[Rfam]
RNA sequence: GUUCACAUCUUACCGGGCAGCAUUAGAUUUUGUACUAUAGAUAUCUCUAAUACUGUCAGGUAAAGAUGUCGUC
Numbered sequence: 001g002u003u004c005a006c007a008u009c010u011u012a013c014c015g016g017g018c019a020g021c022a023u024u025a026g027a028u029u030u031u032g033u034a035c036u037a038u039a040g041a042u043a044u045c046u047c048u049a050a051u052a053c054u055g056u057c058a059g060g061u062a063a064a065g066a067u068g069u070c071g072u073c
Stems, first nucleotide, its partner, number of pairs: 003071001005069005010063005016057005022051006